The record is a 109-nucleotide RNA sequence from Hibiscus trionum, which matches "Small nucleolar RNA Z103" in Rfam. The literature on the family includes a 2003 paper in Nucleic Acids Res by Chen et al., "The high diversity of snoRNAs in plants: identification and comparative study of 120 snoRNA genes from Oryza sativa". The family's RNA type in Rfam is C/D-box small nucleolar RNA.

RNA sequence: AUGGAAGUGAUGAUUAUUUCCCCAGAUGAUCGAAGCUGAACAUACUGAGCGAUGUUUAUAAUUCUUAGUUCUUUUUUUUUGAGAAUUUCAAGCCAGAAAUCUGAUCCAU
Numbered sequence: 001a002u003g004g005a006a007g008u009g010a011u012g013a014u015u016a017u018u019u020c021c022c023c024a025g026a027u028g029a030u031c032g033a034a035g036c037u038g039a040a041c042a043u044a045c046u047g048a049g050c051g052a053u054g055u056u057u058a059u060a061a062u063u064c065u066u067a068g069u070u071c072u073u074u075u076u077u078u079u080u081g082a083g084a085a086u087u088u089c090a091a092g093c094c095a096g097a098a099a100u101c102u103g104a105u106c107c108a109u
Base pairs, nucleotide, nucleotide: 001109002108003107004106005105